[Rfam]
RNA sequence: CUCUCCGAGGAGCGCUGCGAGAGCGUUGGGUGCUUCUACCCACGAUCCCAGGCUCGGAGUUUCGCCAGCGCCAAGCUCGGCAGGAUUCAACUGCGCUCACCUGUU
Number, nucleotide and partner (000 for none) at each position: 001c000002u000003c059004u058005c057006c056007g055008a054009g000010g000011a000012g000013c000014g000015c000016u000017g000018c000019g000020a000021g047022a046023g000024c044025g043026u042027u000028g000029g000030g000031u000032g000033c000034u000035u000036c000037u000038a000039c000040c000041c000042a026043c025044g024045a000046u022047c021048c000049c000050a000051g000052g000053c000054u008055c007056g006057g005058a004059g003060u000061u000062u000063c000064g000065c000066c000067a000068g000069c000070g000071c000072c000073a000074a000075g000076c000077u000078c000079g000080g000081c000082a000083g000084g000085a000086u000087u000088c000089a000090a000091c000092u000093g000094c000095g000096c000097u000098c000099a000100c000101c000102u000103g000104u000105u000
A member of the RNA family "SAH (S-adenosyl-L-homocysteine) riboswitch aptamer" from Uliginosibacterium sp. TH139, 105 nucleotides long. For this family Rfam cites "Riboswitches that sense S-adenosylhomocysteine and activate genes involved in coenzyme recycling" (Wang et al., Mol Cell, 2008). The family's consensus secondary structure is taken from published work.